[Rfam]
RNA sequence: UUUCGAGUGGUGAUGAACAAUUGUGUUUUGGACUAGAGUUUCUGAUACUGCUACUUUGUGGUAGUAGUUGAAGACCAAACACUAAUGCAGUAAUGCCUUUAU
Numbered sequence: 001u002u003u004c005g006a007g008u009g010g011u012g013a014u015g016a017a018c019a020a021u022u023g024u025g026u027u028u029u030g031g032a033c034u035a036g037a038g039u040u041u042c043u044g045a046u047a048c049u050g051c052u053a054c055u056u057u058g059u060g061g062u063a064g065u066a067g068u069u070g071a072a073g074a075c076c077a078a079a080c081a082c083u084a085a086u087g088c089a090g091u092a093a094u095g096c097c098u099u100u101a102u
Stems, first nucleotide, its partner, number of pairs: 003101001005099003039073004046066006
This 102-nucleotide sequence from Dichanthelium oligosanthes belongs to the Rfam family "Small nucleolar RNA Z157/R69/R10". Rfam 15.1 lists 836 matches to the family in 232 species. The family is grouped with related families in Rfam's "SNORD52 clan". Lineage of the source: Eukaryota > Tracheophyta > Mesangiospermae > Panicoideae > Dichanthelium. The family's RNA type in Rfam is C/D-box small nucleolar RNA. For this family Rfam cites "The high diversity of snoRNAs in plants: identification and comparative study of 120 snoRNA genes from Oryza sativa" (Chen et al., Nucleic Acids Res, 2003).